Annotation: The record is a 115-nucleotide sequence from [Eubacterium] saphenum, which matches "FMN riboswitch aptamer (RFN element)" in Rfam. The match comes from Rfam's covariance-model search (101 bits). Pairs were carried over by alignment from the consensus structure, which is taken from published work.
RNA sequence: GUAUAACUUCGAGGAGUGGUGAAAAUCCAUACCGGCGGUAAAGCCCGCAAGUAGAAAUACACGAAUUGGUGAAAUUCCAAUGCCGACAGUAUAGUCUGGAUGUGAGAAGUAAUGG
Numbered sequence: 001g002u003a004u005a006a007c008u009u010c011g012a013g014g015a016g017u018g019g020u021g022a023a024a025a026u027c028c029a030u031a032c033c034g035g036c037g038g039u040a041a042a043g044c045c046c047g048c049a050a051g052u053a054g055a056a057a058u059a060c061a062c063g064a065a066u067u068g069g070u071g072a073a074a075u076u077c078c079a080a081u082g083c084c085g086a087c088a089g090u091a092u093a094g095u096c097u098g099g100a101u102g103u104g105a106g107a108a109g110u111a112a113u114g115g
Stems, first nucleotide, its partner, number of pairs: 003113002006110005017029003031095002033085002035048004043083002065081005087098003

The organism belongs to [Eubacterium] saphenum, within Bacteria. Rfam describes the family as follows. The RFN element is a highly conserved domain that is found frequently in the 5'-untranslated regions of prokaryotic mRNAs that encode for flavin mononucleotide (FMN) biosynthesis and transport proteins. Gene Ontology term of the family: FMN binding.